[Rfam]
RNA sequence: AUGAAUAUUGUGGGAGAGACCAAACGAAUUGUUUGGCACCGAAGGAGCAAGUCCCCAUACAAAUGGGUAUCAAUCUCUCAGGUAAAAGGACCAUAAUAGGACG
Numbered sequence: 001a002u003g004a005a006u007a008u009u010g011u012g013g014g015a016g017a018g019a020c021c022a023a024a025c026g027a028a029u030u031g032u033u034u035g036g037c038a039c040c041g042a043a044g045g046a047g048c049a050a051g052u053c054c055c056c057a058u059a060c061a062a063a064u065g066g067g068u069a070u071c072a073a074u075c076u077c078u079c080a081g082g083u084a085a086a087a088g089g090a091c092c093a094u095a096a097u098a099g100g101a102c103g
Base pairs, nucleotide, nucleotide: 006098007097008096009095010094011093012092013091020036021035022034023033038083039082040081041079042078045077046076047075051070052069